[Rfam]
RNA sequence: GUGCCUUAAAUUUAUAAUCAAGGAAAUAACAAUUUCCUUAGGGGUGAUGCCCAAGUUCUCAUUGCUAAUGUGAGGUGAAUUUGAGUGGGUAAAGGUUACCACUAAGGGACCUGCCUACUUUAAAGGAUGCCUGGAUGUAAUGAUCUGCCUG
Numbered sequence: 001g002u003g004c005c006u007u008a009a010a011u012u013u014a015u016a017a018u019c020a021a022g023g024a025a026a027u028a029a030c031a032a033u034u035u036c037c038u039u040a041g042g043g044g045u046g047a048u049g050c051c052c053a054a055g056u057u058c059u060c061a062u063u064g065c066u067a068a069u070g071u072g073a074g075g076u077g078a079a080u081u082u083g084a085g086u087g088g089g090u091a092a093a094g095g096u097u098a099c100c101a102c103u104a105a106g107g108g109a110c111c112u113g114c115c116u117a118c119u120u121u122a123a124a125g126g127a128u129g130c131c132u133g134g135a136u137g138u139a140a141u142g143a144u145c146u147g148c149c150u151g
Stems, first nucleotide, its partner, number of pairs: 004023004036055001039054001041052003058074005086151005093146006103134001105132003109128001110126003
Shown here is a 151-nucleotide RNA from Nannospalax galili, a member of the family "U12 minor spliceosomal RNA". Its family is annotated with U12 snRNP, pre-mRNA branch point binding and mRNA branch site recognition in the Gene Ontology. The family has 62 seed sequences and 2,106 matches in Rfam 15.1. Pairs were carried over by alignment from the consensus structure. By type it is a spliceosomal small nuclear RNA. NCBI's taxonomy places the organism under Eukaryota, Sarcopterygii, Dipnotetrapodomorpha, Spalacinae, Nannospalax.